[Rfam]
RNA sequence: AUGGGAACAGCACAGCCGCAUAUCCGACCUGCCGCCCGUUCGGGUGGCUUGGGAGUGCGGCGGUGC
Numbered sequence: 001a002u003g004g005g006a007a008c009a010g011c012a013c014a015g016c017c018g019c020a021u022a023u024c025c026g027a028c029c030u031g032c033c034g035c036c037c038g039u040u041c042g043g044g045u046g047g048c049u050u051g052g053g054a055g056u057g058c059g060g061c062g063g064u065g066c
Stems, first nucleotide, its partner, number of pairs: 010066004015061007024053002031048007
RNA: S15-Halobacteria ribosomal protein leader